[Rfam]
RNA: RNase MRP
Nucleotides: 271
Base pairs, nucleotide, nucleotide: 003270004269005268006267008265010264011263014223015222016221017220018219019218022067023066024065025064026063027062028061037051038050039049040048041047042046072257073256075255076254077253078252087099088098089097090096100115101114102113103112104111105110117195118194119193123191124190125189126188127187128186133183134182135181143179144178145177146176167172225242226241227240228239229238
Number, partner (000 for none) and nucleotide at each position: 001000g002000c003270u004269c005268g006267c007000u008265c009000u010264g011263a012000a013000g014223g015222c016221c017220u018219g019218u020000u021000u022067c023066c024065u025064a026063g027062g028061c029000u030000a031000c032000g033000u034000a035000c036000g037051g038050g039049g040048g041047a042046c043000c044000u045000u046042g047041u048040u049039c050038c051037u052000u053000a054000u055000c056000c057000u058000u059000u060000c061028g062027c063026c064025u065024a066023g067022g068000g069000g070000a071000a072257a073256g074000u075255c076254c077253c078252c079000g080000g081000a082000c083000c084000a085000u086000g087099g088098g089097c090096a091000g092000a093000g094000a095000g096090u097089g098088c099087c100115g101114c102113g103112u104111g105110c106000a107000c108000a109000c110105g111104c112103g113102c114101g115100u116000a117195g118194g119193c120000u121000u122000c123191c124190c125189c126188c127187g128186c129000a130000a131000g132000u133183c134182a135181c136000u137000g138000u139000u140000a141000g142000c143179c144178c145177g146176c147000c148000a149000a150000g151000a152000a153000g154000c155000g156000a157000c158000c159000c160000c161000u162000c163000c164000g165000g166000g167172g168000c169000g170000a171000g172167c173000u174000g175000a176146g177145c178144g179143g180000c181135g182134u183133g184000c185000g186128g187127c188126g189125g190124g191123g192000u193119g194118u195117c196000a197000u198000c199000c200000g201000u202000c203000a204000g205000u206000u207000c208000u209000c210000c211000u212000a213000g214000u215000g216000a217000c218019g219018c220017a221016g222015g223014c224000a225242g226241u227240g228239c229238g230000a231000c232000c233000u234000u235000g236000u237000a238229c239228g240227c241226a242225c243000c244000a245000a246000c247000c248000a249000c250000a251000c252078g253077g254076g255075g256073c257072u258000c259000a260000u261000u262000c263011u264010c265008g266000c267006g268005c269004g270003g271000c